[Rfam]
RNA: Small nucleolar RNA Z157/R69/R10
RNA sequence: GAGGUUGCCAUGAGGAUGAAUUUUAAUGUGGACUAGAGUUUCUGAUUUGGGUUUUUACCCAUUAGUUGAAGACUCACCCUUGGCUGUCUGAGCACCUC
Number, nucleotide and partner (000 for none) at each position: 001g098002a097003g096004g095005u000006u094007g093008c092009c000010a000011u000012g000013a000014g000015g000016a000017u000018g000019a000020a000021u000022u000023u000024u000025a000026a000027u000028g000029u000030g000031g000032a000033c000034u000035a000036g000037a000038g000039u071040u070041u069042c068043u000044g000045a000046u064047u000048u061049g060050g059051g058052u000053u000054u000055u000056u000057a000058c051059c050060c049061a048062u000063u000064a046065g000066u000067u000068g042069a041070a040071g039072a000073c000074u000075c000076a000077c000078c000079c000080u000081u000082g000083g000084c000085u000086g000087u000088c000089u000090g000091a000092g008093c007094a006095c004096c003097u002098c001